[Rfam]
The record is a 336-nucleotide part of an RNA from Muribaculaceae bacterium Isolate-110, which matches "Bacterial large subunit ribosomal RNA" in Rfam.
RNA sequence: CGAGAGAUUCACGGUUAAGGAACUAGGCAAAUUGACCCCGUAACUUCGGGAUAAGGGGUCCCCUCCUCCUGGGAGGGGCGCAGAGAAUAGGUCCAGGCAACUGUUUAACAAAAACACAGGGCUGUGCAAAAUUGAAAGAUGAAGAAUACAGCCUGACACCUGCCCGGUGCCGGAAGGUUAAGAGGAGAUGUCAUCGCAAGAGAAGCAUUGAAUUGAAGCCCCGGUAAACGGCGGCCGUAACUAUAACGGUCCUAAGGUAGCGAAAUUCCUUGUCGGGUAAGUUCCGACCUGCACGAAUGGUGUAAUGAUCCGGACACUGUCUCAACCGUGAGCUCG
Numbered sequence: 001c002g003a004g005a006g007a008u009u010c011a012c013g014g015u016u017a018a019g020g021a022a023c024u025a026g027g028c029a030a031a032u033u034g035a036c037c038c039c040g041u042a043a044c045u046u047c048g049g050g051a052u053a054a055g056g057g058g059u060c061c062c063c064u065c066c067u068c069c070u071g072g073g074a075g076g077g078g079c080g081c082a083g084a085g086a087a088u089a090g091g092u093c094c095a096g097g098c099a100a101c102u103g104u105u106u107a108a109c110a111a112a113a114a115c116a117c118a119g120g121g122c123u124g125u126g127c128a129a130a131a132u133u134g135a136a137a138g139a140u141g142a143a144g145a146a147u148a149c150a151g152c153c154u155g156a157c158a159c160c161u162g163c164c165c166g167g168u169g170c171c172g173g174a175a176g177g178u179u180a181a182g183a184g185g186a187g188a189u190g191u192c193a194u195c196g197c198a199a200g201a202g203a204a205g206c207a208u209u210g211a212a213u214u215g216a217a218g219c220c221c222c223g224g225u226a227a228a229c230g231g232c233g234g235c236c237g238u239a240a241c242u243a244u245a246a247c248g249g250u251c252c253u254a255a256g257g258u259a260g261c262g263a264a265a266u267u268c269c270u271u272g273u274c275g276g277g278u279a280a281g282u283u284c285c286g287a288c289c290u291g292c293a294c295g296a297a298u299g300g301u302g303u304a305a306u307g308a309u310c311c312g313g314a315c316a317c318u319g320u321c322u323c324a325a326c327c328g329u330g331a332g333c334u335c336g
Stems, first nucleotide, its partner, number of pairs: 001336004009331008018322003035059005044049001060078006066071001079083001091315004096310002098307002102116003119154008127144001131140003157302004162232003167229002169225005176220003182214002187209005194201002233251006252256001262289001272288006
Dot-bracket structure: ((((....((((((((.(((..............(((((....(....).....)))))(((((((....).))))))(...).......((((.((((..(((.........)))..(((((((((...(((....)))...)..))))))))..((((.(((..(((((((..(((...((...(((((..((....))...)))))...))...))))))))..)))))((((((.......))))))(...).....(.........((((((.....))))))).........))))...)).)).))))....))).)))))))).))))
The base pairs follow the family's consensus structure, which is taken from published work. Gene Ontology terms of the family: structural constituent of ribosome and ribosome. NCBI's taxonomy places the organism under Bacteria, Bacteroidota, Bacteroidia, Bacteroidales, Muribaculaceae.